Small nucleolar RNA snoR77: a 127-nucleotide RNA from Nyssa sinensis. Pairs were carried over by alignment from the consensus structure, which was predicted with WAR. Lineage of the source: Eukaryota > Mesangiospermae > Gunneridae > Cornales > Nyssa. The family's RNA type in Rfam is H/ACA-box small nucleolar RNA.
RNA sequence: AGGCAGCCCCCUUUCAUUAACAAAAAUGGAGAGGGAGGUGUUAAUCUGCUCGAAAAUUGAUCAACAUUUUGCUUUUCAGACUUGCUGAGAUAUCUUUGAGGCUGGUCUAGUAACGCCAAAGUACAUU
Dot-bracket structure: .((((.(((((((((.............))))))).))))))......................(.((..(((....(((((.(((..(....).....))).)))))....).))..)))......